RNA: mir-184 microRNA precursor family
RNA sequence: AUUUUCACAUUUUCUUAUCAUUUGACUGUCCUGGCUGUGUAUGAGAACUGGACGGAAAACUGAUAAGGGAUUGUGGUAAC
Numbered sequence: 001a002u003u004u005u006c007a008c009a010u011u012u013u014c015u016u017a018u019c020a021u022u023u024g025a026c027u028g029u030c031c032u033g034g035c036u037g038u039g040u041a042u043g044a045g046a047a048c049u050g051g052a053c054g055g056a057a058a059a060c061u062g063a064u065a066a067g068g069g070a071u072u073g074u075g076g077u078a079a080c
Stems, first nucleotide, its partner, number of pairs: 012069009021059003026055002030051002